RNA sequence: CUCUGGAAAGUCGGCUCCCUCCAUGACGGGCGCCGCGCCCAAGGUGCAAGCCGCCCACGCCGGCGGUGAAGCUCUCAGGCUUGAAGAUGACAGAG
Number, nucleotide and partner (000 for none) at each position: 001c095002u094003c093004u092005g091006g000007a000008a000009a000010g000011u000012c035013g034014g033015c032016u000017c000018c000019c000020u000021c000022c000023a000024u000025g000026a000027c000028g000029g000030g000031c000032g015033c014034c013035g012036c000037g080038c079039c078040c000041a075042a000043g000044g074045u000046g072047c000048a000049a000050g067051c066052c065053g064054c063055c000056c000057a000058c000059g000060c000061c000062g000063g054064c053065g052066g051067u050068g000069a000070a000071g000072c046073u000074c044075u041076c000077a000078g039079g038080c037081u000082u000083g000084a000085a000086g000087a000088u000089g000090a000091c005092a004093g003094a002095g001